A member of the RNA family "SucA RNA motif", 82 nucleotides long. For this family Rfam cites "Identification of 22 candidate structured RNAs in bacteria using the CMfinder comparative genomics pipeline" (Weinberg et al., Nucleic Acids Res, 2007). Rfam classes the family as a cis-regulatory element. Rfam's curators put it in the seed alignment.
RNA sequence: UCGCAUCCGCCAACCGGUCCAGCCGUGUCGCGGAAGGUAGUUCAACCAACUAAUGUUCCCUGAAGGGGAGCGAAGGUCAGCG
Numbered sequence: 001u002c003g004c005a006u007c008c009g010c011c012a013a014c015c016g017g018u019c020c021a022g023c024c025g026u027g028u029c030g031c032g033g034a035a036g037g038u039a040g041u042u043c044a045a046c047c048a049a050c051u052a053a054u055g056u057u058c059c060c061u062g063a064a065g066g067g068g069a070g071c072g073a074a075g076g077u078c079a080g081c082g
Stems, first nucleotide, its partner, number of pairs: 002082003006034005015025004036047003049077003055071007